[Rfam]
RNA sequence: GGGGAUGAUCGGUUUCGACAGCGGCUGUCGAAGCAGGGGAAGCGUGUCGAGGAAGCGGCCAUGAUCUCGUAAACCACAGGCCGAAAAAAAUAAUCGCCAACACCAAGCGCGAUUCCUCCCAGCAGGCCUUCGCCCUCGCUGCCUGAUCUCAGGUAGCAGAGCGAGCCUCCUACUAAGGGAGUGUCAGCCCGGGGCUGUUCCCGACCCGGAUCCUGGCAUCAGCUAGGGAACUAAACCUCGAUCCCGGUCACGGGGUGAAGAGGGAAACCACACAGUGACUGAGCCCGUCGGAGACUUGUCCGCGUGAUCUCCGGGGCCGAGAAAAGCGAAGCGGACUGCACACGGAGAAGCCCUGGUUCCGCACCGUUGGACGCGGGUUCGAUUCCCGCCAUCUCCACCA
Numbered sequence: 001g002g003g004g005a006u007g008a009u010c011g012g013u014u015u016c017g018a019c020a021g022c023g024g025c026u027g028u029c030g031a032a033g034c035a036g037g038g039g040a041a042g043c044g045u046g047u048c049g050a051g052g053a054a055g056c057g058g059c060c061a062u063g064a065u066c067u068c069g070u071a072a073a074c075c076a077c078a079g080g081c082c083g084a085a086a087a088a089a090a091u092a093a094u095c096g097c098c099a100a101c102a103c104c105a106a107g108c109g110c111g112a113u114u115c116c117u118c119c120c121a122g123c124a125g126g127c128c129u130u131c132g133c134c135c136u137c138g139c140u141g142c143c144u145g146a147u148c149u150c151a152g153g154u155a156g157c158a159g160a161g162c163g164a165g166c167c168u169c170c171u172a173c174u175a176a177g178g179g180a181g182u183g184u185c186a187g188c189c190c191g192g193g194g195c196u197g198u199u200c201c202c203g204a205c206c207c208g209g210a211u212c213c214u215g216g217c218a219u220c221a222g223c224u225a226g227g228g229a230a231c232u233a234a235a236c237c238u239c240g241a242u243c244c245c246g247g248u249c250a251c252g253g254g255g256u257g258a259a260g261a262g263g264g265a266a267a268c269c270a271c272a273c274a275g276u277g278a279c280u281g282a283g284c285c286c287g288u289c290g291g292a293g294a295c296u297u298g299u300c301c302g303c304g305u306g307a308u309c310u311c312c313g314g315g316g317c318c319g320a321g322a323a324a325a326g327c328g329a330a331g332c333g334g335a336c337u338g339c340a341c342a343c344g345g346a347g348a349a350g351c352c353c354u355g356g357u358u359c360c361g362c363a364c365c366g367u368u369g370g371a372c373g374c375g376g377g378u379u380c381g382a383u384u385c386c387c388g389c390c391a392u393c394u395c396c397a398c399c400a
Stems, first nucleotide, its partner, number of pairs: 001396007019369006030359003034355005043344005048069005056083005137161001139159004182218006189209005195203001197231006236263004242257001246280006283317004289313003293309002298336004305329001373389005
About this RNA: A member of the RNA family "transfer-messenger RNA" from Streptomyces cyaneogriseus, 400 nucleotides long. The organism belongs to Streptomyces cyaneogriseus, within Bacteria. It is annotated as a non-coding RNA gene. A search with the family's covariance model found it, with a score of 168 bits.